The family of this 428-nucleotide sequence from Corynebacterium mustelae is "Bacterial RNase P class A". Gene Ontology terms of the family: tRNA processing, ribonuclease P activity and dimeric ribonuclease P complex. Rfam classes the family as a ribozyme. The match comes from Rfam's covariance-model search (285 bits). Rfam describes the family as follows. Ribonuclease P (RNase P) is a ubiquitous endoribonuclease, found in archaea, bacteria and eukarya as well as chloroplasts and mitochondria.
[Rfam]
RNA sequence: UGAGCCGACUGGGCGAUCGCGGCCUGCUGUGCGAACUGCCUUUUCACCCCUUCGGGUGUUAACGGCAAGCGUCAGGUCGAGGAAAGUCCGGACUCCACAGAGCAGGGUGGUUGCUAACGGCAACCCGGGGCAACCCGCGGGCACGUGCAACAGAAAGCAAACCGCCUAGGAAACUAGGUAAGGGUGAAACGGUGCGGUAAGAGCGCACCAGCACGUUAGGCGACUAACGUGGCUGGGUAAACCCCACCUGGAGCAAGGCAAGAAGGCUGCACUGGUACUCGUGCUGGUGUGGCUGCGCAAACGUUUGAGGGCGGCUCGUCUGAAGUUUGUGGGUAGCUGCUUGAGGCGGGUUAGCAAUAACCCGUCCAGAUGGAUGAUCGCCACCGGGAAACCCGGUACAGAAUCCGGCUUACAGGUUGGCUCAUUCG
Dot-bracket structure: ((((((((((((((((((.(((((((.(((......................................))).)))))))....[[[.[[[[[((((...[[[[.((((((((((.....)))))(((((....)))).)((...((((.............((((((((....))))))..)).......((((((.......)))))).(((((((((....)))))))).)...))..)))))))))))))...(((.................................................((((.]]]]))))..............))).......((((((((....))))))))..........))))))).....................]]]]]]]].).))))))))))....